[Rfam]
RNA sequence: AUGUCUUAAACUAAUGAGGGAAGGAAAACAAAGCGAUCAGUGCGAGCCGUUCGCCGCUCUAACCUCUUGUGAGCAGAAAUUUUUGUAGGGUUUAUAGGCUGACCGAGCGCUGACGCUGCUUACUUUGCAGAACUCGCUCGAGUAGGCCUCAAUA
Numbered sequence: 001a002u003g004u005c006u007u008a009a010a011c012u013a014a015u016g017a018g019g020g021a022a023g024g025a026a027a028a029c030a031a032a033g034c035g036a037u038c039a040g041u042g043c044g045a046g047c048c049g050u051u052c053g054c055c056g057c058u059c060u061a062a063c064c065u066c067u068u069g070u071g072a073g074c075a076g077a078a079a080u081u082u083u084u085g086u087a088g089g090g091u092u093u094a095u096a097g098g099c100u101g102a103c104c105g106a107g108c109g110c111u112g113a114c115g116c117u118g119c120u121u122a123c124u125u126u127g128c129a130g131a132a133c134u135c136g137c138u139c140g141a142g143u144a145g146g147c148c149u150c151a152a153u154a
Stems, first nucleotide, its partner, number of pairs: 004024004033054004038049001040047001056074004090153003096149005102143001104140002107137003116130004

This 154-nucleotide sequence from Protea cynaroides belongs to the Rfam family "U12 minor spliceosomal RNA". Lineage of the source: Eukaryota > Viridiplantae > Euphyllophyta > Spermatophyta > Protea. The base pairs follow the family's consensus structure. Rfam classes the family as a spliceosomal small nuclear RNA. For this family Rfam cites "Pre-mRNA splicing: the discovery of a new spliceosome doubles the challenge" (Tarn and Steitz, Trends Biochem Sci, 1997).